Notes
BsrG: a 258-nucleotide RNA from Metabacillus sediminilitoris. It scores 85 bits against the family's covariance model. bsrE, bsrG and bsrH pair through intermolecular interactions with antisense sRNAs. They form type I toxin/antitoxin system that includes an mRNA encoding for a short, toxic peptide (bsrE, bsrG and bsrH) and an antitoxin that is comprised of an antisense RNA. bsrG encodes a 39-amino-acid toxin, and the 180 nucleotide antisense sRNA called SR4 acts as the antitoxin (they overlap by 123 nucleotides). SR4 interaction with the 3'UTR of bsrG RNA promotes bsrG degradation and inhibits its translation.
[Rfam]
RNA sequence: GCAAUAGCUAGGAAACUCAAGGGUGGUCAGUGUUACCCCGGAAGGAAAGGGGGUGAUGCCUAUGAUGACAGUAUUUCAGACGUUAAUGCUUAUGAUAGCAUUUGCAACUUUGGUAUUGUCCAUCAUAUCUUUUAGAGACAAAAAAUAACCCACCCUUGAGCUCUGCAGUGCAAUAGGGUGAGUUAUUUACCUUAACACGCUGAUCCCCUUGAAGGGAACCUGCUAUUGUAUGACUGUUUGGUGUUCCCGCACCGAGCA
Numbered sequence: 001g002c003a004a005u006a007g008c009u010a011g012g013a014a015a016c017u018c019a020a021g022g023g024u025g026g027u028c029a030g031u032g033u034u035a036c037c038c039c040g041g042a043a044g045g046a047a048a049g050g051g052g053g054u055g056a057u058g059c060c061u062a063u064g065a066u067g068a069c070a071g072u073a074u075u076u077c078a079g080a081c082g083u084u085a086a087u088g089c090u091u092a093u094g095a096u097a098g099c100a101u102u103u104g105c106a107a108c109u110u111u112g113g114u115a116u117u118g119u120c121c122a123u124c125a126u127a128u129c130u131u132u133u134a135g136a137g138a139c140a141a142a143a144a145a146u147a148a149c150c151c152a153c154c155c156u157u158g159a160g161c162u163c164u165g166c167a168g169u170g171c172a173a174u175a176g177g178g179u180g181a182g183u184u185a186u187u188u189a190c191c192u193u194a195a196c197a198c199g200c201u202g203a204u205c206c207c208c209u210u211g212a213a214g215g216g217a218a219c220c221u222g223c224u225a226u227u228g229u230a231u232g233a234c235u236g237u238u239u240g241g242u243g244u245u246c247c248c249g250c251a252c253c254g255a256g257c258a
Stems, first nucleotide, its partner, number of pairs: 001229005007223002011219001016160008025150003033055001036053004067120007081094002170190001172188001204217004235258010